[Rfam]
Selenocysteine transfer RNA: a 94-nucleotide RNA from Heliobacterium mobile.

RNA sequence: GGGAGUGAAUGGGUCCUGGUGGGCUUCACGGGCUUCAAACCCGGUAGGCGCGCGGCUAACCCGGGCGCGGUAGGUUCGAUUCCUACGCACUCCC
Numbered sequence: 001g002g003g004a005g006u007g008a009a010u011g012g013g014u015c016c017u018g019g020u021g022g023g024c025u026u027c028a029c030g031g032g033c034u035u036c037a038a039a040c041c042c043g044g045u046a047g048g049c050g051c052g053c054g055g056c057u058a059a060c061c062c063g064g065g066c067g068c069g070g071u072a073g074g075u076u077c078g079a080u081u082c083c084u085a086c087g088c089a090c091u092c093c094c
Base pairs, nucleotide, nucleotide: 001094002093003092004091005090006089007088011026012025013024014023015022016021029043030042031041032040048068049067050066051065071085072084073083074082